A member of the RNA family "c-di-GMP-I riboswitch aptamer" from Hominibacterium faecale, 76 nucleotides long. The organism belongs to Hominibacterium, within Bacteria.
RNA sequence: AAAUUUAAUGGGCAAAGCCGGGGAAACACGGUGACGCAAAGCUACAGGGCCUGUAAAAUGGCAGCCAGCUGCAAUA
Numbered sequence: 001a002a003a004u005u006u007a008a009u010g011g012g013c014a015a016a017g018c019c020g021g022g023g024a025a026a027c028a029c030g031g032u033g034a035c036g037c038a039a040a041g042c043u044a045c046a047g048g049g050c051c052u053g054u055a056a057a058a059u060g061g062c063a064g065c066c067a068g069c070u071g072c073a074a075u076a
Base pairs, nucleotide, nucleotide: 012037013036017032018031019030020029022027040070041069042068043067047066048065049062050061051060